DUF3577 RNA: a 102-nucleotide RNA sequence. Rfam's curators put it in the seed alignment. The family's RNA type in Rfam is cis-regulatory element. The family's consensus secondary structure is taken from published work.
RNA sequence: CGUACCGGAAAAGCGCAGGAAACUGCGUGAAACUCGCCUGUAAUCCCGGCAUCAUCACGUCAGUGAUGUGGCGACUGCCCUUGCUGCUGCGGCAGCGAUUAU
Numbered sequence: 001c002g003u004a005c006c007g008g009a010a011a012a013g014c015g016c017a018g019g020a021a022a023c024u025g026c027g028u029g030a031a032a033c034u035c036g037c038c039u040g041u042a043a044u045c046c047c048g049g050c051a052u053c054a055u056c057a058c059g060u061c062a063g064u065g066a067u068g069u070g071g072c073g074a075c076u077g078c079c080c081u082u083g084c085u086g087c088u089g090c091g092g093c094a095g096c097g098a099u100u101a102u
Base pairs, nucleotide, nucleotide: 013028014027015026016025017024018023034074035073036072037071038070053068054067055066056065057064058063085097086096087095088094089093